[Rfam]
RNA sequence: AGGUAUAUGUGGAGGGCUUUUUAUUGCCUUGAGGGGCACUGAUGACUUAAAUAUCAUGUACAAUGACAUGACACUGAGACCU
Dot-bracket structure: ((((...((..............................................................)).....))))
A member of the RNA family "Small nucleolar RNA SNORD115" from Carlito syrichta, 82 nucleotides long. Pairs were carried over by alignment from the consensus structure, which was predicted with PFOLD. The match comes from Rfam's covariance-model search (46 bits). For this family Rfam cites "Identification of brain-specific and imprinted small nucleolar RNA genes exhibiting an unusual genomic organization" (Cavaille et al., Proc Natl Acad Sci U S A, 2000). NCBI's taxonomy places the organism under Eukaryota, Craniata, Sarcopterygii, Tarsiidae, Carlito.